The record is a 256-nucleotide RNA from Nocardioides sp., which matches "raiA RNA" in Rfam. Pairs were carried over by alignment from the consensus structure, which is taken from published work.
RNA sequence: UCCGCCCGGGUCCGUGGUUGCGCCGCACUGGCUGGGCAGGCGCCCGACCGGAUGCGGCAAGCCGAUGCCAGUCGCAGGCGAAACGGUCCACGUAAGUCGACGUUCGCGUCGACGAUCACGGUGCGGCUUAGUCGUAAGUCCUGCCUCGGACCUGACGUCAGACACGUCCGGCCCCGGGAGAAGGCCAUCAGUGGCAGCAAGCUGCGAACGCCUCAGCAGGCGGGUGUGGGGACGAAGACCAGGUCGGCCGGGCGGA
Dot-bracket structure: (((((((((..((((((((.............................................((([.(((((((.]........((...(...((((((......))))))..)..[)))))))))...........((((((((((........................)))))...((((.....((..(.....)..))....))))..)))))....)))......]..)))))...))))))))))))
The organism belongs to Nocardioides, within Bacteria.